[Rfam]
RNA sequence: AUUCCUCUUGUCGUGUAUCCUCGAUGGAUGCAGCAGCAGAUGCUUCA
Number, nucleotide and partner (000 for none) at each position: 001a000002u000003u000004c000005c000006u000007c000008u000009u000010g025011u024012c023013g022014u000015g000016u000017a000018u000019c000020c000021u000022c013023g012024a011025u010026g000027g000028a000029u000030g000031c000032a044033g043034c042035a000036g000037c000038a000039g000040a000041u000042g034043c033044u032045u000046c000047a000
RNA: Plastid-ycf3 group II-D1 intron
Organism: Musa balbisiana